[Rfam]
RNA: Small nucleolar RNA SNORA55
RNA sequence: GCACCUGAAUCUUUCCCAUUCUUUGCUGCUUUGUGCUGGUGUGGGGACAGAUGGUGCCACAGCAUGAGCAGGGGAAAUCCAGACGGGUUGUCUUUCACUUGUCUUGAGGCCUGUCUCUACAACUCUGCCACACUU
Numbered sequence: 001g002c003a004c005c006u007g008a009a010u011c012u013u014u015c016c017c018a019u020u021c022u023u024u025g026c027u028g029c030u031u032u033g034u035g036c037u038g039g040u041g042u043g044g045g046g047a048c049a050g051a052u053g054g055u056g057c058c059a060c061a062g063c064a065u066g067a068g069c070a071g072g073g074g075a076a077a078u079c080c081a082g083a084c085g086g087g088u089u090g091u092c093u094u095u096c097a098c099u100u101g102u103c104u105u106g107a108g109g110c111c112u113g114u115c116u117c118u119a120c121a122a123c124u125c126u127g128c129c130a131c132a133c134u135u
Stems, first nucleotide, its partner, number of pairs: 001057005013047007021039002068128006081116008095107003